[Rfam]
RNA sequence: GUAAUUUGAGGUGGGAAAUUUCGUCCAGCCCACGCGCCGAUGGUGUGACAGGGGAAACCCGAGUAGAUGCAGGAGAAUUGGACGCCUGCCAAAUUAC
Numbered sequence: 001g002u003a004a005u006u007u008g009a010g011g012u013g014g015g016a017a018a019u020u021u022c023g024u025c026c027a028g029c030c031c032a033c034g035c036g037c038c039g040a041u042g043g044u045g046u047g048a049c050a051g052g053g054g055a056a057a058c059c060c061g062a063g064u065a066g067a068u069g070c071a072g073g074a075g076a077a078u079u080g081g082a083c084g085c086c087u088g089c090c091a092a093a094u095u096a097c
Stems, first nucleotide, its partner, number of pairs: 001097008011033005023083005036044003069089005

Source information
Shown here is a 97-nucleotide RNA sequence, a member of the family "skipping-rope RNA". Rfam's curators put it in the seed alignment. The family's consensus secondary structure is taken from published work.